[Rfam]
Nucleotides: 071
Base pairs, nucleotide, nucleotide: 001070002069003068004067005066006065007064010022011021012020025039026038027037028036046063047062048061050060051059
Number, partner (000 for none) and nucleotide at each position: 001070c002069a003068u004067u005066a006065g007064a008000u009000g010022a011021c012020u013000g014000a015000a016000a017000g018000c019000a020012a021011g022010u023000a024000c025039u026038g027037g028036u029000c030000u031000c032000u033000u034000a035000a036028a037027c038026c039025a040000u041000u042000u043000a044000a045000u046063a047062g048061u049000a050060a051059a052000u053000u054000a055000g056000c057000a058000c059051u060050u061048a062047c063046u064007u065006c066005u067004a068003a069002u070001g071000a
The record is a 71-nucleotide RNA from Drosophila melanogaster, which matches "tRNA" in Rfam. Lineage of the source: Eukaryota > Opisthokonta > Arthropoda > Panorpida > Sophophora. Rfam's curators put it in the seed alignment. The family has 954 seed sequences and 5,335,975 matches in Rfam 15.1. About the family: Transfer RNA (tRNA) molecules are approximately 80 nucleotides in length. Their secondary structure includes four short double-helical elements and three loops (D, anti-codon, and T loops). Further hydrogen bonds mediate the characteristic L-shaped molecular structure. tRNAs have two regions of fundamental functional importance: the anti-codon, which is responsible for specific mRNA codon recognition, and the 3' end, to which the tRNAs corresponding amino acid is attached (by aminoacyl-tRNA synthetases). tRNAs cope with the degeneracy of the genetic code in two manners: having more than one tRNA (with a specific anti-codon) for a particular amino acid; and 'wobble' base-pairing, i.e. permitting non-standard base-pairing at the 3rd anti-codon position. Rfam classes the family as a transfer RNA.